[Rfam]
RNA sequence: UUCGUUGACUCGGGGUGCCGCUUUCCUGUCACGGAAAUCGGCUGAGAUAGACCCGUAUUACCUGAUCUGGAUUAUGCCAGCGUAGGGAAGUCACGGUAUCCCGCC
Numbered sequence: 001u002u003c004g005u006u007g008a009c010u011c012g013g014g015g016u017g018c019c020g021c022u023u024u025c026c027u028g029u030c031a032c033g034g035a036a037a038u039c040g041g042c043u044g045a046g047a048u049a050g051a052c053c054c055g056u057a058u059u060a061c062c063u064g065a066u067c068u069g070g071a072u073u074a075u076g077c078c079a080g081c082g083u084a085g086g087g088a089a090g091u092c093a094c095g096g097u098a099u100c101c102c103g104c105c
Stems, first nucleotide, its partner, number of pairs: 006093005011055004016049001017042004061086004067080004
Rfam assigns this 105-nucleotide sequence from Dickeya dadantii to the family "TPP riboswitch aptamer (THI element)".
The source organism's lineage runs through Bacteria, Pseudomonadota, Enterobacterales, Dickeya and Dickeya dadantii.